[Rfam]
RNA sequence: GUUUUUUCAUGGUAUUAGAUUUAAGGUAUUAAAGAAUUGGUUGUCGGGAGACAACCCUUCUUUUUAAA
Numbered sequence: 001g002u003u004u005u006u007u008c009a010u011g012g013u014a015u016u017a018g019a020u021u022u023a024a025g026g027u028a029u030u031a032a033a034g035a036a037u038u039g040g041u042u043g044u045c046g047g048g049a050g051a052c053a054a055c056c057c058u059u060c061u062u063u064u065u066a067a068a
Stems, first nucleotide, its partner, number of pairs: 039056007

This 68-nucleotide sequence from Coprobacter fastidiosus belongs to the Rfam family "Bacteroidetes FopS (family of paralogous sRNAs)". It is annotated as a small RNA. The RNA-binding protein RbpB and BTncRNA_FopS sRNA are involved in the post-transcription regulation of polysaccharide utilisation loci (PUL). FopS sRNAs function as post-transcriptional repressors by binding to the vicinity of the start codon of the first mRNA of target PUL polycistrons, typically corresponding to the cognate SusC homolog, impeding translation of the respective glycan transporter. The match comes from Rfam's covariance-model search (59 bits). The organism belongs to Coprobacter fastidiosus, within Bacteria. The literature on the family includes a 2025 paper in Nat Commun by Ruttiger et al., "The global RNA-binding protein RbpB is a regulator of polysaccharide utilization in Bacteroides thetaiotaomicron". The base pairs follow the family's consensus structure, which is taken from published work.